[Rfam]
RNA: Small nucleolar RNA SNORA68
RNA sequence: UCUGCACAAGGACUACAUUACGGUAGCAUGUCACAUACAUGUUACAUUUCACUUGUGCAGAGAAUAAAUUCAGCUUGUCGCCUUUGCCAAGAAACUUUAUCUUGUCGAAGUGAAUCAAGGAUGUAACAUAU
Numbered sequence: 001u002c003u004g005c006a007c008a009a010g011g012a013c014u015a016c017a018u019u020a021c022g023g024u025a026g027c028a029u030g031u032c033a034c035a036u037a038c039a040u041g042u043u044a045c046a047u048u049u050c051a052c053u054u055g056u057g058c059a060g061a062g063a064a065u066a067a068a069u070u071c072a073g074c075u076u077g078u079c080g081c082c083u084u085u086g087c088c089a090a091g092a093a094a095c096u097u098u099a100u101c102u103u104g105u106c107g108a109a110g111u112g113a114a115u116c117a118a119g120g121a122u123g124u125a126a127c128a129u130a131u
Stems, first nucleotide, its partner, number of pairs: 002060008023045009071123002074120003082110005088104005